[Rfam]
RNA sequence: CCGCACAGCCGGGGAGUUAGCGGUGCCCUGUACCUGCAAUCCGCUACAGCAGGGGUGAUGUCCUUGCCGAGGGCGUUAUGUUGCAGAGCUGCCCCUUGAAAGUGGCGUUGAAGUCUGGGUCUUACGCAACAGGAAUCUGUGAACCGUGUCAGGGCAGGAAUGCAGCAGCACUAAGCAGAAGCUCUUGUGUGCCGUGAGGCUGCCUGGGCGGAGUUAACUGCAAGGGUAACGUUUGUGAUAUACGUUCGAAGCAGGAUGUGCGG
Numbered sequence: 001c002c003g004c005a006c007a008g009c010c011g012g013g014g015a016g017u018u019a020g021c022g023g024u025g026c027c028c029u030g031u032a033c034c035u036g037c038a039a040u041c042c043g044c045u046a047c048a049g050c051a052g053g054g055g056u057g058a059u060g061u062c063c064u065u066g067c068c069g070a071g072g073g074c075g076u077u078a079u080g081u082u083g084c085a086g087a088g089c090u091g092c093c094c095c096u097u098g099a100a101a102g103u104g105g106c107g108u109u110g111a112a113g114u115c116u117g118g119g120u121c122u123u124a125c126g127c128a129a130c131a132g133g134a135a136u137c138u139g140u141g142a143a144c145c146g147u148g149u150c151a152g153g154g155c156a157g158g159a160a161u162g163c164a165g166c167a168g169c170a171c172u173a174a175g176c177a178g179a180a181g182c183u184c185u186u187g188u189g190u191g192c193c194g195u196g197a198g199g200c201u202g203c204c205u206g207g208g209c210g211g212a213g214u215u216a217a218c219u220g221c222a223a224g225g226g227u228a229a230c231g232u233u234u235g236u237g238a239u240a241u242a243c244g245u246u247c248g249a250a251g252c253a254g255g256a257u258g259u260g261c262g263g
Stems, first nucleotide, its partner, number of pairs: 001263007008056003011029004016024003033053005063255005071247005077242010090228002094225005102218002104215003113209008121198006127189002130187005136179005146171004154163003
Dot-bracket structure: ((((((((((((((.(((...))).))))...(((((...........))))))))......(((((...(((((.((((((((((...((..(((((...(((((......((((((((((((((((.(((((.(((((.....((((....(((....)))....))))...)))))...)))))))...))))))...))))))))...))).))..))))).))....)))))))))))))))...))))).)))))))
RNA: Bacterial large signal recognition particle RNA